[Rfam]
RNA sequence: UGCAAGAUGAUGAGAUUUGUAUUACUGAAUUUGAUGUGGAAUUCCAUACCAAACUGGUCUUCAAAGUUCUCUGAUUGCU
Number, nucleotide and partner (000 for none) at each position: 001u000002g078003c077004a076005a075006g000007a000008u000009g000010a000011u000012g000013a000014g000015a000016u000017u000018u000019g000020u000021a000022u000023u000024a000025c000026u000027g000028a000029a000030u000031u000032u000033g000034a000035u000036g000037u000038g000039g000040a000041a000042u000043u000044c000045c000046a000047u000048a000049c000050c000051a000052a000053a000054c000055u000056g000057g000058u000059c000060u000061u000062c000063a000064a000065a000066g000067u000068u000069c000070u000071c000072u000073g000074a000075u005076u004077g003078c002079u000